Rfam assigns this 62-nucleotide sequence from Propithecus coquereli to the family "U7 small nuclear RNA".
RNA sequence: AAGUGUUACAGCUCUUUAAGAAUCUGUCUAGCAGCUUUUCCGGUCCUCACCGGAAGACCCUC
Numbered sequence: 001a002a003g004u005g006u007u008a009c010a011g012c013u014c015u016u017u018a019a020g021a022a023u024c025u026g027u028c029u030a031g032c033a034g035c036u037u038u039u040c041c042g043g044u045c046c047u048c049a050c051c052g053g054a055a056g057a058c059c060c061u062c
Stems, first nucleotide, its partner, number of pairs: 034059001036057009
It scores 58 bits against the family's covariance model.